Rfam assigns this 387-nucleotide RNA sequence from Oscillatoriaceae cyanobacterium M7585_C2015_266 to the family "Bacterial RNase P class A". Lineage of the source: Bacteria > Bacillati > Oscillatoriophycideae > Oscillatoriales > Oscillatoriaceae. It is annotated as a ribozyme.
[Rfam]
RNA sequence: AGAGUAGGCGCAGGUGGUUGCGGAGUGCAAACUCUGAGGAAAGUCCGGGCUCCCGAAAGACCAAACUUGCUGGGUAACGCCCAGUGCGAGCGAUCGCGAGGAUAGUGCCACAGAAACAUACCGCCUACUUCAGUGUUGAGUACAUUCUCUCACUGAAUUGGUAAGGGUGCAAAGGUGCGGUAAGAGCGCACCAGCAGCGUCGAGAGGCGCUGGCUCGGUAAACCCCGGUUGGGAGCAAGGUCGAAGGAACUACGGUUGGUCUUUUACCAGUUCCGCUUAUACAGAACCGCUAGAGGCGUCUGGUAACAGACGUCCCAGAUAGAUAACCACCCUCUAAGCUGUACAUCAGUUAGGAGAACAGAACCCGGCUUAUGUCCGACUCUCUCC
Numbered sequence: 001a002g003a004g005u006a007g008g009c010g011c012a013g014g015u016g017g018u019u020g021c022g023g024a025g026u027g028c029a030a031a032c033u034c035u036g037a038g039g040a041a042a043g044u045c046c047g048g049g050c051u052c053c054c055g056a057a058a059g060a061c062c063a064a065a066c067u068u069g070c071u072g073g074g075u076a077a078c079g080c081c082c083a084g085u086g087c088g089a090g091c092g093a094u095c096g097c098g099a100g101g102a103u104a105g106u107g108c109c110a111c112a113g114a115a116a117c118a119u120a121c122c123g124c125c126u127a128c129u130u131c132a133g134u135g136u137u138g139a140g141u142a143c144a145u146u147c148u149c150u151c152a153c154u155g156a157a158u159u160g161g162u163a164a165g166g167g168u169g170c171a172a173a174g175g176u177g178c179g180g181u182a183a184g185a186g187c188g189c190a191c192c193a194g195c196a197g198c199g200u201c202g203a204g205a206g207g208c209g210c211u212g213g214c215u216c217g218g219u220a221a222a223c224c225c226c227g228g229u230u231g232g233g234a235g236c237a238a239g240g241u242c243g244a245a246g247g248a249a250c251u252a253c254g255g256u257u258g259g260u261c262u263u264u265u266a267c268c269a270g271u272u273c274c275g276c277u278u279a280u281a282c283a284g285a286a287c288c289g290c291u292a293g294a295g296g297c298g299u300c301u302g303g304u305a306a307c308a309g310a311c312g313u314c315c316c317a318g319a320u321a322g323a324u325a326a327c328c329a330c331c332c333u334c335u336a337a338g339c340u341g342u343a344c345a346u347c348a349g350u351u352a353g354g355a356g357a358a359c360a361g362a363a364c365c366c367g368g369c370u371u372a373u374g375u376c377c378g379a380c381u382c383u384c385u386c387c
Stems, first nucleotide, its partner, number of pairs: 001383005007377002010375003013331007021036006041371003045368005050235004059263002064230003068227002070084005085099001086097004100225002105223002107219003121166002123162003127159001129157007174192006194214001195212007239288003246274006254268003258264001295314008